[Rfam]
RNA sequence: GUUUCCGAGGAGCGUUGCGACGGGCAAUUGUCGAAAAUUGGCCCGCCAGGCUCGGAAGCAUUCAAUCCGGACGGUUCGAAAGCGCCACGCAAUCAAGGCGCCCGCUGAGCCACCGCAUCGAACGGCGCUCACGUCAA
Numbered sequence: 001g002u003u004u005c006c007g008a009g010g011a012g013c014g015u016u017g018c019g020a021c022g023g024g025c026a027a028u029u030g031u032c033g034a035a036a037a038u039u040g041g042c043c044c045g046c047c048a049g050g051c052u053c054g055g056a057a058g059c060a061u062u063c064a065a066u067c068c069g070g071a072c073g074g075u076u077c078g079a080a081a082g083c084g085c086c087a088c089g090c091a092a093u094c095a096a097g098g099c100g101c102c103c104g105c106u107g108a109g110c111c112a113c114c115g116c117a118u119c120g121a122a123c124g125g126c127g128c129u130c131a132c133g134u135c136a137a
Base pairs, nucleotide, nucleotide: 002058003057004056005055006054007053008052021045022044023043024042025041
This 137-nucleotide RNA from Caballeronia novacaledonica belongs to the Rfam family "SAH (S-adenosyl-L-homocysteine) riboswitch aptamer". The family has 52 seed sequences and 1,354 matches in Rfam 15.1.